[Rfam]
RNA sequence: UCUACCGUGAGGAGAAUCGAAAGGAAGCUAAGGACAAAAGUCUGGCUCCACGCACAGAAACUUGAUAUAAGGCUCAAAGUCAGGGGUAAGGUUGCUACACAAACCAAAGCCCGAUAGCUAUCCGGACUGACGAGAGUAAAUCAAGGGAGUAUAAGACUGAAAGAUUAUGUU
Number, nucleotide and partner (000 for none) at each position: 001u015002c000003u014004a000005c012006c011007g000008u000009g000010a000011g006012g005013a000014g003015a001016a000017u000018c000019g000020a000021a000022a000023g000024g000025a000026a000027g171028c000029u169030a168031a000032g000033g000034a000035c163036a000037a000038a000039a158040g157041u156042c155043u154044g000045g150046c149047u148048c147049c146050a000051c000052g000053c000054a000055c000056a000057g000058a000059a000060a000061c145062u144063u143064g142065a141066u140067a000068u000069a000070a000071g000072g137073c136074u135075c000076a000077a000078a000079g131080u130081c129082a128083g127084g112085g111086g110087u109088a000089a000090g105091g104092u103093u102094g000095c000096u000097a000098c000099a000100c000101a000102a093103a092104c091105c090106a000107a000108a000109g087110c086111c085112c084113g000114a000115u000116a000117g000118c000119u000120a000121u000122c000123c000124g000125g000126a000127c083128u082129g081130a080131c079132g000133a000134g000135a074136g073137u072138a000139a000140a066141u065142c064143a063144a062145g061146g049147g048148a047149g046150u045151a000152u000153a000154a043155g042156a041157c040158u039159g000160a000161a000162a000163g035164a000165u000166u000167a000168u030169g029170u000171u027